[Rfam]
Notes:
Rfam assigns this 141-nucleotide RNA from Brevibacillus borstelensis to the family "PyrR binding site". Rfam describes the family as follows. This family represents the PyrR binding site and terminator structure. The literature on the family includes a 2001 paper in Nucleic Acids Res by Bonner et al., "Molecular recognition of pyr mRNA by the Bacillus subtilis attenuation regulatory protein PyrR".
RNA sequence: GGUACCUUUAAAUCAGUCCCGUGAGGCUGACAAGGUAAGUCGGAAAUCCGCUGAUGGCAGGCUGGGAAUCUUUGUGUCCCUUUCUGUCGUUGUGGGUGAAAGAGGCCUCUUGUCAGGAAAUACGGCAGGAGGCCUCUUUUU
Number, nucleotide and partner (000 for none) at each position: 001g000002g000003u037004a036005c035006c034007u033008u032009u000010a000011a000012a000013u030014c029015a028016g027017u026018c025019c000020c000021g000022u000023g000024a000025g018026g017027c016028u015029g014030a013031c000032a008033a007034g006035g005036u004037a003038a000039g000040u000041c000042g000043g000044a000045a000046a000047u000048c000049c000050g000051c000052u000053g000054a090055u089056g088057g087058c086059a085060g084061g083062c000063u000064g080065g079066g078067a077068a000069u000070c000071u000072u000073u000074g000075u000076g000077u067078c066079c065080c064081u000082u000083u061084c060085u059086g058087u057088c056089g055090u054091u000092g000093u000094g000095g000096g000097u000098g000099a139100a138101a137102g136103a135104g134105g133106c132107c131108u130109c129110u128111u127112g126113u125114c124115a000116g000117g000118a000119a000120a000121u000122a000123c000124g114125g113126c112127a111128g110129g109130a108131g107132g106133c105134c104135u103136c102137u101138u100139u099140u000141u000